[Rfam]
The family of this 65-nucleotide sequence is "DUF3800-IX RNA".
From the family's description: Actinobacteria, Firmicutes (1 example), Nitrospirae, Proteobacteria, Verrucomicrobia (1 example).
The sequence is in the family's curated seed alignment.
RNA sequence: GCCCGCUGACCGAACUGUGGCCUUUAGGGUCUGCGUUCCCGCGUGGGAUAGGUCAACGGGCUUUU
Number, nucleotide and partner (000 for none) at each position: 001g061002c060003c059004c058005g057006c000007u055008g054009a053010c052011c051012g000013a000014a000015c000016u035017g034018u033019g031020g030021c029022c028023u000024u000025u000026a000027g000028g022029g021030u020031c019032u000033g018034c017035g016036u000037u048038c047039c046040c045041g000042c000043g000044u000045g040046g039047g038048a037049u000050a000051g011052g010053u009054c008055a007056a000057c005058g004059g003060g002061c001062u000063u000064u000065u000